[Rfam]
RNA sequence: UGAUAACACUUUUUGCAAUUCUCAACCGAUGACGCAAUGAUACGUGAGAUAAAUUUUUCAUGUGUCAUUGUAUUAUUGGCUGGGAAUAGCAAAAUAGUGUUAUCC
Numbered sequence: 001u002g003a004u005a006a007c008a009c010u011u012u013u014u015g016c017a018a019u020u021c022u023c024a025a026c027c028g029a030u031g032a033c034g035c036a037a038u039g040a041u042a043c044g045u046g047a048g049a050u051a052a053a054u055u056u057u058u059c060a061u062g063u064g065u066c067a068u069u070g071u072a073u074u075a076u077u078g079g080c081u082g083g084g085a086a087u088a089g090c091a092a093a094a095u096a097g098u099g100u101u102a103u104c105c
Base pairs, nucleotide, nucleotide: 002104003103004102005101011094012093013092014091015090016089018087019086021084022083023082024081026079027078028077029076030075031074032073034071035070036069037068038067039066040065041064042063043062044061045060046059047058048057049056